The record is a 114-nucleotide sequence from Denticeps clupeoides, which matches "U5 spliceosomal RNA" in Rfam.
The family has 180 seed sequences and 28,527 matches in Rfam 15.1.
The family's consensus secondary structure is taken from published work.
RNA sequence: UCGCUUGGGCUUCUCUUCAUCACGUACAAAUCUUUCGCCUUUUACUAAAGAUUUCCGUGGAGAUGGGCGUCAACAAGCUCACAAUAUUUUUGGGGGCUCUGUUUUGACAGAGCU
Number, nucleotide and partner (000 for none) at each position: 001u000002c000003g078004c077005u076006u075007g000008g000009g068010c067011u066012u065013c000014u063015c062016u061017u060018c059019a058020u000021c000022a000023c000024g000025u000026a000027c000028a054029a053030a052031u051032c050033u049034u048035u047036c000037g000038c000039c000040u000041u000042u000043u000044a000045c000046u000047a035048a034049a033050g032051a031052u030053u029054u028055c000056c000057g000058u019059g018060g017061a016062g015063a014064u000065g012066g011067g010068c009069g000070u000071c000072a000073a000074c000075a006076a005077g004078c003079u000080c000081a000082c000083a000084a000085u000086a000087u000088u000089u000090u000091u000092g000093g000094g114095g000096g113097c112098u111099c110100u109101g108102u000103u000104u000105u000106g000107a000108c101109a100110g099111a098112g097113c096114u094
On this family, see Zwieb, Nucleic Acids Res 1997: "The uRNA database". Rfam's curators write: U5 RNA is a component of both types of known spliceosome. A search with the family's covariance model found it, with a score of 86 bits.